[Rfam]
RNA sequence: GUUCCCAAUGAUGUUACUUUUAACCAUGCUAAUGCUGAUUACAUGAUUAUCUUUAAUAUCAAUAUACUGAGGGAACA
Numbered sequence: 001g002u003u004c005c006c007a008a009u010g011a012u013g014u015u016a017c018u019u020u021u022a023a024c025c026a027u028g029c030u031a032a033u034g035c036u037g038a039u040u041a042c043a044u045g046a047u048u049a050u051c052u053u054u055a056a057u058a059u060c061a062a063u064a065u066a067c068u069g070a071g072g073g074a075a076c077a
Stems, first nucleotide, its partner, number of pairs: 001076005